A member of the RNA family "Plastid-psbA-1 3UTR RNA" from Ziziphus jujuba, 113 nucleotides long.
It scores 79 bits against the family's covariance model.
A reference for the family is Richter et al. (2023), "Retrograde signaling in plants: A critical review focusing on the GUN pathway and beyond", Plant Commun.
Taxonomically the source falls in Ziziphus (Eukaryota, Spermatophyta, fabids, Rhamnaceae).
Plastid psbA-1 is a non-coding RNA (ncRNA) present in plastids. It was identified in inverted repeat sequences in the 3 prime untranslate region (3UTR) of photosystem II quinone-binding protein (psbA).
The family's consensus secondary structure was predicted with LocARNA.
RNA sequence: UCGAAGUUCCAUCUACAAACGGAUAAGACUUUGGUAUUAGUAUAUACUGAGUUAUUGAACAGAAAGGAGCAAUAAUCAAUUUCUUGUUCUAGCAAGAAGUUUACUUAACUUUU
Numbered sequence: 001u002c003g004a005a006g007u008u009c010c011a012u013c014u015a016c017a018a019a020c021g022g023a024u025a026a027g028a029c030u031u032u033g034g035u036a037u038u039a040g041u042a043u044a045u046a047c048u049g050a051g052u053u054a055u056u057g058a059a060c061a062g063a064a065a066g067g068a069g070c071a072a073u074a075a076u077c078a079a080u081u082u083c084u085u086g087u088u089c090u091a092g093c094a095a096g097a098a099g100u101u102u103a104c105u106u107a108a109c110u111u112u113u
Stems, first nucleotide, its partner, number of pairs: 008023003012019001065113005073107003078101002081098005